[Rfam]
RNA: mir-155 microRNA precursor family
Organism: Mus musculus
RNA sequence: CUGUUAAUGCUAAUUGUGAUAGGGGUUUUGGCCUCUGACUGACUCCUACCUGUUAGCAUUAACAG
Dot-bracket structure: ...(((((((((((.....((((.(((.............))).))))...)))))))))))...